[Rfam]
The family of this 151-nucleotide sequence is "Connexin-32 internal ribosome entry site (IRES)".
The family's consensus secondary structure is taken from published work.
A reference for the family is Hudder and Werner (2000), "Analysis of a Charcot-Marie-Tooth disease mutation reveals an essential internal ribosome entry site element in the connexin-32 gene", J Biol Chem.
This family represents the connexin-32 internal ribosome entry site (IRES) which allows cap independent translation during conditions such as heat shock and stress.
RNA sequence: AUAUGACUCCCCAGCACCGGGCGGUGAUGAAUUGGGACGCAGGCGCGGAGCCCAGGGACCACUCCCCCUGCACAGACAUGAGACCAUAGGGGACCUGUCUGGGUGGCCUCAGGGAUAGGCGCUCCCCAAGGUAAGAGGGCUUUGUUGAGUU
Numbered sequence: 001a002u003a004u005g006a007c008u009c010c011c012c013a014g015c016a017c018c019g020g021g022c023g024g025u026g027a028u029g030a031a032u033u034g035g036g037a038c039g040c041a042g043g044c045g046c047g048g049a050g051c052c053c054a055g056g057g058a059c060c061a062c063u064c065c066c067c068c069u070g071c072a073c074a075g076a077c078a079u080g081a082g083a084c085c086a087u088a089g090g091g092g093a094c095c096u097g098u099c100u101g102g103g104u105g106g107c108c109u110c111a112g113g114g115a116u117a118g119g120c121g122c123u124c125c126c127c128a129a130g131g132u133a134a135g136a137g138g139g140c141u142u143u144g145u146u147g148a149g150u151u
Base pairs, nucleotide, nucleotide: 009139010138011137016132017131018130019127020126021125024122025121026120032112033111034110035109036108038047039046040045051106052105053103056100057099058098059097063093064092065091066090067089